[Rfam]
RNA sequence: ACGAAGUGAUGUUACAAAUUCAUGUCUGUCAAUCCACUGAAACCAAAUUCUGGUUGUGAUGUUUCACAUGAAUCCCGACAGGUUCUGAUCGU
Numbered sequence: 001a002c003g004a005a006g007u008g009a010u011g012u013u014a015c016a017a018a019u020u021c022a023u024g025u026c027u028g029u030c031a032a033u034c035c036a037c038u039g040a041a042a043c044c045a046a047a048u049u050c051u052g053g054u055u056g057u058g059a060u061g062u063u064u065c066a067c068a069u070g071a072a073u074c075c076c077g078a079c080a081g082g083u084u085c086u087g088a089u090c091g092u
Stems, first nucleotide, its partner, number of pairs: 001092004
RNA: Small nucleolar RNA snoR14